[Rfam]
The record is a 131-nucleotide RNA sequence from Cavia porcellus, which matches "Small nucleolar RNA SNORA1" in Rfam. The organism belongs to Cavia, within Eukaryota. Rfam describes the family as follows. ACA1 is a member of the H/ACA class of snoRNA that guide the sites of modification of uridines to pseudouridines. By type it is an H/ACA-box small nucleolar RNA.
RNA sequence: AGCCUCAUUCUAGAUUAGAAUGGGCUCUGUUGAUUGGUGUCCAAAAUUAAUCAAUGUGGCUGAAAUUGUCACAAGUCAUGCUUCUAUCAUAGUAAAUGUUUACAGUGGUAACAAUGAAACUUGUAACAUUU
Numbered sequence: 001a002g003c004c005u006c007a008u009u010c011u012a013g014a015u016u017a018g019a020a021u022g023g024g025c026u027c028u029g030u031u032g033a034u035u036g037g038u039g040u041c042c043a044a045a046a047u048u049a050a051u052c053a054a055u056g057u058g059g060c061u062g063a064a065a066u067u068g069u070c071a072c073a074a075g076u077c078a079u080g081c082u083u084c085u086a087u088c089a090u091a092g093u094a095a096a097u098g099u100u101u102a103c104a105g106u107g108g109u110a111a112c113a114a115u116g117a118a119a120c121u122u123g124u125a126a127c128a129u130u131u
Stems, first nucleotide, its partner, number of pairs: 002060003006056003021043005027037001071124005085110006